[Rfam]
This 45-nucleotide RNA from Nasonia vitripennis belongs to the Rfam family "Histone 3' UTR stem-loop". Lineage of the source: Eukaryota > Metazoa > Eumetabola > Apocrita > Nasonia.
RNA sequence: CAAUCGGCCCUUUUCAGGGCCACUAUUUAACUAUAUACAUUUUUU
Number, nucleotide and partner (000 for none) at each position: 001c000002a000003a000004u000005c000006g021007g020008c019009c018010c017011u016012u000013u000014u000015c000016a011017g010018g009019g008020c007021c006022a000023c000024u000025a000026u000027u000028u000029a000030a000031c000032u000033a000034u000035a000036u000037a000038c000039a000040u000041u000042u000043u000044u000045u000
Source information:
Rfam describes the family as follows. The mRNAs of metazoan histone genes lack a poly-A tail. 3' end processing occurs at a site between a highly conserved stem-loop (modelled by this family) and a purine rich region around 20 nts downstream (the histone downstream element, or HDE). The stem-loop is bound by a 31 kDa stem-loop binding protein (SLBP - also termed the histone hairpin binding protein, or HBP). Together with U7 snRNA binding of the HDE, SLBP binding nucleate s the formation of the processing complex. The histone 3' UTR stem-loop is also involved in nucleocytoplasmic transport of the mRNA, and in stability regulation and translation efficiency in the cytoplasm. The match comes from Rfam's covariance-model search (35 bits). The family's consensus secondary structure is taken from published work.